The family of this 67-nucleotide RNA from Niallia endozanthoxylica is "Bacillaceae-1 RNA". Rfam classes the family as a small RNA. NCBI's taxonomy places the organism under Bacteria, Bacillati, Bacillota, Caryophanales, Niallia.

RNA sequence: AUUCGUGGAAUCACGGACUAAGAACGUCACAUUUGUGGCAACGUCUGUGUGACCCACAUCCUGCGGG
Numbered sequence: 001a002u003u004c005g006u007g008g009a010a011u012c013a014c015g016g017a018c019u020a021a022g023a024a025c026g027u028c029a030c031a032u033u034u035g036u037g038g039c040a041a042c043g044u045c046u047g048u049g050u051g052a053c054c055c056a057c058a059u060c061c062u063g064c065g066g067g
Stems, first nucleotide, its partner, number of pairs: 012049007026039005053067003057063001